RNA sequence: GUGGAGGAUCUGUUAAGCUCAGGAGGGAUAGCGCCACUGGUACUGACUGAUGUGAUACGUUUAAUUUUCUUUUCAAUAUAAUCGUUCACCCCAUAAACGAGUGGUGGCGCUAUCCAUCCUGAGUUCCAUAGCUCCUUCUU
Number, nucleotide and partner (000 for none) at each position: 001g000002u000003g000004g000005a000006g000007g000008a000009u000010c131011u000012g000013u000014u000015a000016a125017g124018c123019u122020c121021a120022g119023g118024a117025g000026g115027g114028a113029u112030a111031g110032c109033g108034c107035c106036a105037c104038u103039g102040g000041u000042a000043c000044u000045g000046a000047c000048u000049g000050a000051u000052g000053u000054g000055a000056u000057a000058c000059g000060u000061u000062u000063a000064a000065u000066u000067u000068u000069c000070u000071u000072u000073u000074c000075a000076a000077u000078a000079u000080a000081a000082u000083c000084g000085u000086u000087c000088a000089c000090c000091c000092c000093a000094u000095a000096a000097a000098c000099g000100a000101g000102u039103g038104g037105u036106g035107g034108c033109g032110c031111u030112a029113u028114c027115c026116a000117u024118c023119c022120u021121g020122a019123g018124u017125u016126c000127c000128a000129u000130a000131g010132c000133u000134c000135c000136u000137u000138c000139u000140u000
Source information:
MIR390 microRNA precursor family: a 140-nucleotide sequence from Cuscuta campestris. A search with the family's covariance model found it, with a score of 93 bits. For this family Rfam cites "Expression of Arabidopsis MIRNA genes" (Xie et al., Plant Physiol, 2005).